[Rfam]
RNA sequence: UAUAGAAAAGAGCAAAUUCUUUGAAAAAAGAAGACGCAAAGCUGCGGGUCUAAGGAUUAUAUAUUAAUCUAUGACGGCUGGGUUGCCUAU
Numbered sequence: 001u002a003u004a005g006a007a008a009a010g011a012g013c014a015a016a017u018u019c020u021u022u023g024a025a026a027a028a029a030g031a032a033g034a035c036g037c038a039a040a041g042c043u044g045c046g047g048g049u050c051u052a053a054g055g056a057u058u059a060u061a062u063a064u065u066a067a068u069c070u071a072u073g074a075c076g077g078c079u080g081g082g083u084u085g086c087c088u089a090u
Stems, first nucleotide, its partner, number of pairs: 012037002017032006040084004045080003048075003055069004
RNA: c-di-GMP-I riboswitch aptamer
Organism: Clostridiales bacterium oral taxon 876